This 421-nucleotide part of an RNA from Plasmodium yoelii belongs to the Rfam family "Eukaryotic large subunit ribosomal RNA". Its family is annotated with structural constituent of ribosome and ribosome in the Gene Ontology.
RNA sequence: GAAUUUAUUAUUCUUAUAUAUAAUGUGUUGUGACAGUAAUCCAACUUGGUACGAGAGGAUUAGUUGGUUCAGACAGUUGGUACAGCAAUUGGUUGACAAACCAGUGUUGCGAAGCUACGUCUGUUGGAUAAUGACUGAAAGCCUCUUAAGUCAGAACCCAUGCUGAUUAAACAAUACUAAUUCGUUCUUCUUUGUUUUCUUUUACUGCUGAUGUAAAAGCGAAACUAUAUAUAUAACACAUUCGUUAUAUAAUUAAUCCCAUGCUGUUUUGAAGACCAUGUCUCAUUACAGGUCCUUGUAAUUAACAACAAAGAUGAAUUACACAAACUGUAGACGACUUUUAUGUCUGGAGGUGCUGUAAACAUGAAAGUAAACCUUGUUUUACGAUCUGUUGAGGCUUAUCCUUCCUGAUAAAGUGUUA
Numbered sequence: 001g002a003a004u005u006u007a008u009u010a011u012u013c014u015u016a017u018a019u020a021u022a023a024u025g026u027g028u029u030g031u032g033a034c035a036g037u038a039a040u041c042c043a044a045c046u047u048g049g050u051a052c053g054a055g056a057g058g059a060u061u062a063g064u065u066g067g068u069u070c071a072g073a074c075a076g077u078u079g080g081u082a083c084a085g086c087a088a089u090u091g092g093u094u095g096a097c098a099a100a101c102c103a104g105u106g107u108u109g110c111g112a113a114g115c116u117a118c119g120u121c122u123g124u125u126g127g128a129u130a131a132u133g134a135c136u137g138a139a140a141g142c143c144u145c146u147u148a149a150g151u152c153a154g155a156a157c158c159c160a161u162g163c164u165g166a167u168u169a170a171a172c173a174a175u176a177c178u179a180a181u182u183c184g185u186u187c188u189u190c191u192u193u194g195u196u197u198u199c200u201u202u203u204a205c206u207g208c209u210g211a212u213g214u215a216a217a218a219g220c221g222a223a224a225c226u227a228u229a230u231a232u233a234u235a236a237c238a239c240a241u242u243c244g245u246u247a248u249a250u251a252a253u254u255a256a257u258c259c260c261a262u263g264c265u266g267u268u269u270u271g272a273a274g275a276c277c278a279u280g281u282c283u284c285a286u287u288a289c290a291g292g293u294c295c296u297u298g299u300a301a302u303u304a305a306c307a308a309c310a311a312a313g314a315u316g317a318a319u320u321a322c323a324c325a326a327a328c329u330g331u332a333g334a335c336g337a338c339u340u341u342u343a344u345g346u347c348u349g350g351a352g353g354u355g356c357u358g359u360a361a362a363c364a365u366g367a368a369a370g371u372a373a374a375c376c377u378u379g380u381u382u383u384a385c386g387a388u389c390u391g392u393u394g395a396g397g398c399u400u401a402u403c404c405u406u407c408c409u410g411a412u413a414a415a416g417u418g419u420u421a
Base pairs, nucleotide, nucleotide: 025177026176027175028174029173030172031171034165035164036163037162039069041067042066043065044064045063046062070123071122072121073120074119078117079116080115085110086109087108088107089104090103091102092101093100094099125160126159127158132153133152134151135150136149191317192316195313196312197311321419322418323417324416326342327341330338346411347410349408350407351405352404353403355398356397362392363391364390367388370385371384372383373382374381